The record is a 139-nucleotide sequence from Clupea harengus, which matches "Small nucleolar RNA SNORD10" in Rfam.
For this family Rfam cites "RNomics: an experimental approach that identifies 201 candidates for novel, small, non-messenger RNAs in mouse" (Huttenhofer et al., EMBO J, 2001).
Rfam links the family to the GO terms nucleolus and RNA processing.

RNA sequence: GUUUAAUGAUGAUAACAUGCGUGUCAACUGAACUUGGUGUUCUCUGCAGCGUUCUGUCUCCAGUCAGCGUUUUGCUUACUGGUGCACAUGGCGCUGCAGGACUCUGAGCGCAUGAUCAGAGAUGUAUAAGGCUGAAAAC
Dot-bracket structure: ((((......................................((((((((..........................................))))))))...................................))))